[Rfam]
RNA sequence: UCAGAUGGCUGGAUGGCCGCCCCGCCGCGUCCCCCGUGGACCGGCGGGGAGGAAAGUCCGGGCUCCACGGAAACACGGUGCCGGAUAACGUCCGGCGGGGGCGACCCUAGGGAAAGUGCCACAGAAAGCAAACCGCCCGUCCGCCGGUCUUCGGACCGCGCCGACGGGUAAGGGUGAAAGGGUGCGGUAAGAGCGCACCGCCCCCCUGGCGACAGGGGGGGCACGGUAAACCCCACCGGGAGCAAGACGGAGUAGGAGCGGCCGGCCCAGCCCUUCGGGGCGGGGGCCAGGCGUGUUUUCGCGCCGCCGCUCGGGUAGGUCGCGCGAGGCGUCCGGCGACGGACGUCCCAGAUGAAUGGCCAUCCAUCGUGUCCGGGUCCGCCCGGACGCGGGGACAGAACCCGGCUUACAGGCCAUCUGACGCU
Dot-bracket structure: ((((((((((((((((((.((((((((..............))))))))....[[[.[[[[[((((....[[[..((((((((((.....)))))(((((....)))).)((...(((((............(((((((((.(.................).)))))))..)).......((((((.......))))))(((((((((....)))))))).)..)))..)))))))))))))...(((.......((((((............................(((((..]]].))))).))))))......)))......((((((((....))))))))..........)))))))....................................]]]]]]]].).))))))))))....
The record is a 425-nucleotide sequence from Roseospira marina, which matches "Bacterial RNase P class A" in Rfam. The family's RNA type in Rfam is ribozyme. The family's consensus secondary structure is taken from published work. Rfam links the family to the GO terms dimeric ribonuclease P complex, ribonuclease P activity and tRNA processing.